This 33-nucleotide RNA from Callorhinchus milii belongs to the Rfam family "Iron response element I". Gene Ontology term of the family: response to iron ion. The literature on the family includes a 2001 paper in Insect Mol Biol by Zhang et al., "Repression of Manduca sexta ferritin synthesis by IRP1/IRE interaction".
[Rfam]
RNA sequence: CGUUCUUGCUUCAACAGUGUUUGAACGGAAUAG
Dot-bracket structure: (.(.((.(.((((((...).)))))))))...)